[Rfam]
RNA sequence: AAAGUCCACUGCGAUGAAGGAGUAGCGCCUCACAUCGGCCCGGAGCCGUGCGUCAUUGUCCGUGAGGGCAAGGGCGAAGCGUCGGCAGGGGAGAGCAUAGGCCAGCCAUCGAGCCGCGAAAGGCACAAAUUCAGGCGCGGACGCCGUUGACACAGCGGAAGGCAUUAUGGGACGGGCGCGCCACGCGAGCUUCCGUCUGGUCCGGCGUGGUCGCAGACCC
Numbered sequence: 001a002a003a004g005u006c007c008a009c010u011g012c013g014a015u016g017a018a019g020g021a022g023u024a025g026c027g028c029c030u031c032a033c034a035u036c037g038g039c040c041c042g043g044a045g046c047c048g049u050g051c052g053u054c055a056u057u058g059u060c061c062g063u064g065a066g067g068g069c070a071a072g073g074g075c076g077a078a079g080c081g082u083c084g085g086c087a088g089g090g091g092a093g094a095g096c097a098u099a100g101g102c103c104a105g106c107c108a109u110c111g112a113g114c115c116g117c118g119a120a121a122g123g124c125a126c127a128a129a130u131u132c133a134g135g136c137g138c139g140g141a142c143g144c145c146g147u148u149g150a151c152a153c154a155g156c157g158g159a160a161g162g163c164a165u166u167a168u169g170g171g172a173c174g175g176g177c178g179c180g181c182c183a184c185g186c187g188a189g190c191u192u193c194c195g196u197c198u199g200g201u202c203c204g205g206c207g208u209g210g211u212c213g214c215a216g217a218c219c220c
Stems, first nucleotide, its partner, number of pairs: 012037005019031002022028001023188001025186002039091003045086004049081002051076004056071006111212001113211006131205002134202003137163002142157003168199002171197006178190002
RNA: Group II catalytic intron D1-D4-6
Organism: Mesorhizobium sp. L-8-10